[Rfam]
RNA sequence: AAGCCAUGGUGUAAUAUGGCUUUUUAUUCCUAUGUGAUGGUGAAAAAUGUUCAUGUAGGAAUCGAAGCCAUUUUACAUGUGGUGA
Numbered sequence: 001a002a003g004c005c006a007u008g009g010u011g012u013a014a015u016a017u018g019g020c021u022u023u024u025u026a027u028u029c030c031u032a033u034g035u036g037a038u039g040g041u042g043a044a045a046a047a048u049g050u051u052c053a054u055g056u057a058g059g060a061a062u063c064g065a066a067g068c069c070a071u072u073u074u075a076c077a078u079g080u081g082g083u084g085a
Base pairs, nucleotide, nucleotide: 003083004082005081006080007079009078010077011076012075013074014073016071017070018069019068020067021066022065023064026062027061028060029059030058031057032056033055034054035053036052037051